[Rfam]
RNA sequence: CUGCAAUGAUGGCAGUAUUUUUCGUCAACAGCAGUUCACAUGGUGAGGGAUGAUACUUUGGGUCUGAGUGA
Numbered sequence: 001c002u003g004c005a006a007u008g009a010u011g012g013c014a015g016u017a018u019u020u021u022u023c024g025u026c027a028a029c030a031g032c033a034g035u036u037c038a039c040a041u042g043g044u045g046a047g048g049g050a051u052g053a054u055a056c057u058u059u060g061g062g063u064c065u066g067a068g069u070g071a
Stems, first nucleotide, its partner, number of pairs: 002070003008026004